[Rfam]
RNA: tRNA
Organism: Salipaludibacillus keqinensis
RNA sequence: GCGGUUGUGGCGAAGUGGUUAACGCACCGGAUUGUGAUUCCGGCACUCGUGGGUUCAAUUCCCAUCAGCCGCC
Numbered sequence: 001g002c003g004g005u006u007g008u009g010g011c012g013a014a015g016u017g018g019u020u021a022a023c024g025c026a027c028c029g030g031a032u033u034g035u036g037a038u039u040c041c042g043g044c045a046c047u048c049g050u051g052g053g054u055u056c057a058a059u060u061c062c063c064a065u066c067a068g069c070c071g072c073c
Base pairs, nucleotide, nucleotide: 001072002071003070004069005068006067007066010025011024012023027043028042029041030040031039049065050064051063052062053061